[Rfam]
This 122-nucleotide RNA sequence from Streptococcus ferus belongs to the Rfam family "Streptococcus sRNA SSRC34". It is annotated as a small RNA. A reference for the family is Tesorero et al. (2013), "Novel Regulatory Small RNAs in Streptococcus pyogenes", PLoS One. It scores 93 bits against the family's covariance model. The family's consensus secondary structure was predicted with CMfinder. NCBI's taxonomy places the organism under Bacteria, Bacillati, Bacilli, Streptococcaceae, Streptococcus. Rfam describes the family as follows. It is based on computationally predicted coordinates (RNAz).
RNA sequence: UGGAAACGUUUUACAAUAUAGUUGUUCUUAAUCUUUUUAAGAGGGAAAAGAAUUGGCCUUUGGCAUGGAGAUUAUUCUUUUUCAGCUUAAAAAAGAAAUAAAUUAAAGGAGGAAGAACAAGA
Dot-bracket structure: .....(((.((........)).)))((((..(((((((.((..((((((((((..(((...))).........))))))))))..))..)))))))................))))......